[Rfam]
RNA sequence: GGCGGGGAGGGUUCCUGGCACCGUGAUUUGAUGCACAAAGACAAACAAAAAUCACAUUGCCAGGGAUUUCCACCCUUUC
Numbered sequence: 001g002g003c004g005g006g007g008a009g010g011g012u013u014c015c016u017g018g019c020a021c022c023g024u025g026a027u028u029u030g031a032u033g034c035a036c037a038a039a040g041a042c043a044a045a046c047a048a049a050a051a052u053c054a055c056a057u058u059g060c061c062a063g064g065g066a067u068u069u070c071c072a073c074c075c076u077u078u079c
Base pairs, nucleotide, nucleotide: 001079002078004076005075006074009071010070011067012066013065014064015063016062017061018060019059020058023055024054025053026052027051028050029049